This 66-nucleotide RNA belongs to the Rfam family "Bacilli-1 RNA". Rfam classes the family as a small RNA.
RNA sequence: AUUCACAGUAAUGUGAACAUAUAGCAACAGUCACGCUAUAUGGUUUGGCAAAAGUGAACUACCCCU
Numbered sequence: 001a002u003u004c005a006c007a008g009u010a011a012u013g014u015g016a017a018c019a020u021a022u023a024g025c026a027a028c029a030g031u032c033a034c035g036c037u038a039u040a041u042g043g044u045u046u047g048g049c050a051a052a053a054g055u056g057a058a059c060u061a062c063c064c065c066u
Stems, first nucleotide, its partner, number of pairs: 002017006018042007